[Rfam]
RNA: tRNA
RNA sequence: CAAAGUAUAGCUUAACCAAAGCCUUUCGCUUACACCGAAACAAUAUCUGUUAAACCCGGAUUACUUUGA
Numbered sequence: 001c002a003a004a005g006u007a008u009a010g011c012u013u014a015a016c017c018a019a020a021g022c023c024u025u026u027c028g029c030u031u032a033c034a035c036c037g038a039a040a041c042a043a044u045a046u047c048u049g050u051u052a053a054a055c056c057c058g059g060a061u062u063a064c065u066u067u068g069a
Stems, first nucleotide, its partner, number of pairs: 001068007010022004024040005045061005